[Rfam]
RNA sequence: UUGGUUUAAAUCAUUGUGGAUCAAUAUUUUGAAAAUUGAAACCCCACAAAAUGGUGGGACAUACAUUGAUUUCAUCAAA
Numbered sequence: 001u002u003g004g005u006u007u008a009a010a011u012c013a014u015u016g017u018g019g020a021u022c023a024a025u026a027u028u029u030u031g032a033a034a035a036u037u038g039a040a041a042c043c044c045c046a047c048a049a050a051a052u053g054g055u056g057g058g059a060c061a062u063a064c065a066u067u068g069a070u071u072u073c074a075u076c077a078a079a
Stems, first nucleotide, its partner, number of pairs: 001079002004076001006074001008072006015065004022057001024055001025053007
The family of this 79-nucleotide RNA from Medicago truncatula is "MIR5269 microRNA precursor family". NCBI's taxonomy places the organism under Eukaryota, Streptophytina, Spermatophyta, Mesangiospermae, Medicago.